[Rfam]
RNA sequence: GCGCAGAGUAGAAGCGUUCAGCCACGCGACGGUUCCCGUCGAUGGUGGGAAAUUGCUCUUUCA
Dot-bracket structure: ....((((((....[..((.(((...(((((.....)))))..))).]))...))))))....
Numbered sequence: 001g002c003g004c005a006g007a008g009u010a011g012a013a014g015c016g017u018u019c020a021g022c023c024a025c026g027c028g029a030c031g032g033u034u035c036c037c038g039u040c041g042a043u044g045g046u047g048g049g050a051a052a053u054u055g056c057u058c059u060u061u062c063a
Stems, first nucleotide, its partner, number of pairs: 005059006015048001018050002021046003027041005
Xanthine riboswitch aptamer (NMT1 RNA): a 63-nucleotide RNA from Variovorax sp. CF313. The source organism's lineage runs through Bacteria, Pseudomonadati, Burkholderiales, Comamonadaceae and Variovorax. The literature on the family includes a 2021 paper in Nucleic Acids Res by Xu et al., "Insights into xanthine riboswitch structure and metal ion-mediated ligand recognition".